This 127-nucleotide RNA sequence from Camelus ferus belongs to the Rfam family "Small nucleolar RNA ACA64".
It scores 133 bits against the family's covariance model.
Rfam 15.1 lists 9,537 matches to the family in 620 species.
Rfam classes the family as an H/ACA-box small nucleolar RNA.
RNA sequence: GUCAGUUGAAAAUCGCCUGCGGCUUUGGCCGUGGCCGUGGGUGAGAUUCGGCGCCUAGAGCCACUGGGGGCCUCAGCUCACAGCUCACUCCUCGGUGUGGGGUGGUGAAACCCAGGCCCCAACAGGC
Numbered sequence: 001g002u003c004a005g006u007u008g009a010a011a012a013u014c015g016c017c018u019g020c021g022g023c024u025u026u027g028g029c030c031g032u033g034g035c036c037g038u039g040g041g042u043g044a045g046a047u048u049c050g051g052c053g054c055c056u057a058g059a060g061c062c063a064c065u066g067g068g069g070g071c072c073u074c075a076g077c078u079c080a081c082a083g084c085u086c087a088c089u090c091c092u093c094g095g096u097g098u099g100g101g102g103u104g105g106u107g108a109a110a111c112c113c114a115g116g117c118c119c120c121a122a123c124a125g126g127c
Base pairs, nucleotide, nucleotide: 005052006051007050008049009048010047013044014043015042016041021036022035023034024033067120069118070117071116072115073114078108079107080106081105086099087098088097